[Rfam]
RNA sequence: GUCUUUGAUGAUGAUGUUGAAAUGUGAAAGCUUUCUUUCUUCCGAGGCGGGAGGGCCACCUCCCUCGCUGCGGAACCCUUCCUGGAGACCUGAGCUGAGGAGAC
Numbered sequence: 001g002u003c004u005u006u007g008a009u010g011a012u013g014a015u016g017u018u019g020a021a022a023u024g025u026g027a028a029a030g031c032u033u034u035c036u037u038u039c040u041u042c043c044g045a046g047g048c049g050g051g052a053g054g055g056c057c058a059c060c061u062c063c064c065u066c067g068c069u070g071c072g073g074a075a076c077c078c079u080u081c082c083u084g085g086a087g088a089c090c091u092g093a094g095c096u097g098a099g100g101a102g103a104c
Stems, first nucleotide, its partner, number of pairs: 003102004
The family of this 104-nucleotide RNA sequence from Colocasia esculenta is "Small nucleolar RNA Z159/U59". A reference for the family is Chen et al. (2003), "The high diversity of snoRNAs in plants: identification and comparative study of 120 snoRNA genes from Oryza sativa", Nucleic Acids Res. By type it is a C/D-box small nucleolar RNA.